[Rfam]
RNA: c-di-GMP-I riboswitch aptamer
RNA sequence: AAUGAUAAAGGGCAAACUCGUACGAAAGUCGGGGACGCAAAGCUACGAAUCUAAACUAGCCGAUGAUGGCUGGCAUGAUAGUCGGGCCGCUCAA
Numbered sequence: 001a002a003u004g005a006u007a008a009a010g011g012g013c014a015a016a017c018u019c020g021u022a023c024g025a026a027a028g029u030c031g032g033g034g035a036c037g038c039a040a041a042g043c044u045a046c047g048a049a050u051c052u053a054a055a056c057u058a059g060c061c062g063a064u065g066a067u068g069g070c071u072g073g074c075a076u077g078a079u080a081g082u083c084g085g086g087c088c089g090c091u092c093a094a
Stems, first nucleotide, its partner, number of pairs: 012038002017033004022029002042087003046084003049079003056073007